[Rfam]
RNA sequence: UUUAUCUACUAGGGGAGCCUUUAGAAAGGCUGAGAUUAAAGUGUAACUUUGAGACCCUUUGUACCUGAUCUGGUUCGUACCAGCGUAGGAAAGUGGAAUUUUAUGACU
Number, nucleotide and partner (000 for none) at each position: 001u000002u000003u000004a000005u000006c096007u095008a094009c093010u092011a058012g057013g056014g055015g000016a000017g030018c029019c028020u027021u026022u000023a000024g000025a000026a021027a020028g019029g018030c017031u000032g000033a000034g000035a000036u000037u051038a050039a049040a048041g047042u000043g000044u000045a000046a000047c041048u040049u039050u038051g037052a000053g000054a000055c014056c013057c012058u011059u000060u000061g000062u000063a000064c089065c088066u087067g086068a000069u000070c083071u082072g081073g080074u000075u000076c000077g000078u000079a000080c073081c072082a071083g070084c000085g000086u067087a066088g065089g064090a000091a000092a010093g009094u008095g007096g006097a000098a000099u000100u000101u000102u000103a000104u000105g000106a000107c000108u000
TPP riboswitch aptamer (THI element): a 108-nucleotide sequence from Bacillus manliponensis. A search with the family's covariance model found it, with a score of 85 bits. Taxonomically the source falls in Bacillus (Bacteria, Bacillati, Bacilli, Caryophanales).